Background
Rfam assigns this 113-nucleotide RNA from Bacillus anthracis to the family "TPP riboswitch aptamer (THI element)". The base pairs follow the family's consensus structure, which is taken from published work.
[Rfam]
RNA sequence: AUAGUUUGCUAGGAGAGCUGGUGUUGCCAGCUGAGAGUAAGACCUUAAGUCUUUGAUCCUUUUUAUUACCUGAUCUAGAUUAUGCUAGCGUAGGGAAGCAAUUCGGACACUAA
Numbered sequence: 001a002u003a004g005u006u007u008g009c010u011a012g013g014a015g016a017g018c019u020g021g022u023g024u025u026g027c028c029a030g031c032u033g034a035g036a037g038u039a040a041g042a043c044c045u046u047a048a049g050u051c052u053u054u055g056a057u058c059c060u061u062u063u064u065a066u067u068a069c070c071u072g073a074u075c076u077a078g079a080u081u082a083u084g085c086u087a088g089c090g091u092a093g094g095g096a097a098g099c100a101a102u103u104c105g106g107a108c109a110c111u112a113a
Stems, first nucleotide, its partner, number of pairs: 006101005011060004016054001017031005039053004069094004075088004

Lineage of the source: Bacteria > Bacillati > Bacillota > Caryophanales > Bacillus anthracis.